Source information: Shown here is a 114-nucleotide sequence from Albula glossodonta, a member of the family "Potassium channel RNA editing signal". A search with the family's covariance model found it, with a score of 107 bits. Rfam classes the family as a cis-regulatory element. This family represents a group of sequences related to the human potassium channel Kv1.1 hairpin element which directs the efficient modification of an adenosine to inosine by an adenosine deaminase acting on RNA (ADAR). The ADAR modification causes an isoleucine/valine recoding event which lies in the ion-conducting pore of the potassium channel. It is thought that this editing event targets the process of fast inactivation and allows a more rapid recovery from inactivation at negative potentials. The literature on the family includes a 2004 paper in Nat Struct Mol Biol by Bhalla et al., "Control of human potassium channel inactivation by editing of a small mRNA hairpin". Rfam links the family to the GO term adenosine to inosine editing. Lineage of the source: Eukaryota > Eumetazoa > Vertebrata > Teleostei > Albula. The base pairs follow the family's consensus structure, which is taken from published work.
RNA sequence: GUGGGCUACGGUGACAUGGUUCCCAUCACUAUAGGGGGUAAAAUCGUUGGGUCGCUUUGCGCCAUUGCUGGUGUCCUGACCAUCGCCUUGCCUGUGCCUGUUAUUGUCUCCAAC
Numbered sequence: 001g002u003g004g005g006c007u008a009c010g011g012u013g014a015c016a017u018g019g020u021u022c023c024c025a026u027c028a029c030u031a032u033a034g035g036g037g038g039u040a041a042a043a044u045c046g047u048u049g050g051g052u053c054g055c056u057u058u059g060c061g062c063c064a065u066u067g068c069u070g071g072u073g074u075c076c077u078g079a080c081c082a083u084c085g086c087c088u089u090g091c092c093u094g095u096g097c098c099u100g101u102u103a104u105u106g107u108c109u110c111c112a113a114c
Stems, first nucleotide, its partner, number of pairs: 001114002004111002008107004013102004018097001021094001037077002040074001049063002